RNA sequence: GCAGAUCUGAAAAGCGGAGGCGCCGUGCGCGGCCCUCCCACCCAAGGUGCAAGCCGGCACCCGCCGUGUGGCGGGUUCACGGUGAACCUCUCAGGUUCCGAUGACAGAUGGGGAGGG
Numbered sequence: 001g002c003a004g005a006u007c008u009g010a011a012a013a014g015c016g017g018a019g020g021c022g023c024c025g026u027g028c029g030c031g032g033c034c035c036u037c038c039c040a041c042c043c044a045a046g047g048u049g050c051a052a053g054c055c056g057g058c059a060c061c062c063g064c065c066g067u068g069u070g071g072c073g074g075g076u077u078c079a080c081g082g083u084g085a086a087c088c089u090c091u092c093a094g095g096u097u098c099c100g101a102u103g104a105c106a107g108a109u110g111g112g113g114a115g116g117g
Base pairs, nucleotide, nucleotide: 002112005109006108007107008106009105016038017037018036019035040096041095042094044091047090049088053083054082055081056080
Dot-bracket structure: .(..(((((......((((...............)))).(((.(..(.(...((((.......................))))....).))..)))........)))))..).....
Rfam assigns this 117-nucleotide RNA from Actinacidiphila guanduensis to the family "Glycine riboswitch aptamer". The match comes from Rfam's covariance-model search (33 bits).